[Rfam]
RNA sequence: AUUUGAUCAGUGAUGUGAUUUGUACAUAAUCUGCGUUAUCUUUCUGCAACUCCUUUCAAGGAAUUGAAGAUGACUGUGAUACACUGAGAUUAAU
Numbered sequence: 001a002u003u004u005g006a007u008c009a010g011u012g013a014u015g016u017g018a019u020u021u022g023u024a025c026a027u028a029a030u031c032u033g034c035g036u037u038a039u040c041u042u043u044c045u046g047c048a049a050c051u052c053c054u055u056u057c058a059a060g061g062a063a064u065u066g067a068a069g070a071u072g073a074c075u076g077u078g079a080u081a082c083a084c085u086g087a088g089a090u091u092a093a094u
Base pairs, nucleotide, nucleotide: 003093004092005091006090007089
Source information: Rfam assigns this 94-nucleotide sequence from Musa acuminata to the family "Small nucleolar RNA snoR27". It scores 57 bits against the family's covariance model. A reference for the family is Brown et al. (2001), "Multiple snoRNA gene clusters from Arabidopsis", RNA. Its family is annotated with nucleolus and RNA processing in the Gene Ontology. Rfam 15.1 lists 649 matches to the family in 212 species.